[Rfam]
RNA sequence: GCUACUUGAUCGGGAGAGCGUGACGAUAGUCGCCGCCGAAGGGGCUAAUACCCAAAAAACUCUCAGGCAAAAGGACCGAUCAACGGGG
Numbered sequence: 001g002c003u004a005c006u007u008g009a010u011c012g013g014g015a016g017a018g019c020g021u022g023a024c025g026a027u028a029g030u031c032g033c034c035g036c037c038g039a040a041g042g043g044g045c046u047a048a049u050a051c052c053c054a055a056a057a058a059a060c061u062c063u064c065a066g067g068c069a070a071a072a073g074g075a076c077c078g079a080u081c082a083a084c085g086g087g088g
Base pairs, nucleotide, nucleotide: 006083007082008081009080010079011078012077013076020033021032022031023030035068036067037066038064039063042062043061044060049054
Description
Rfam assigns this 88-nucleotide sequence from Undibacterium sp. KW1 to the family "Glycine riboswitch aptamer". The family is grouped with related families in Rfam's "Glycine riboswitch clan".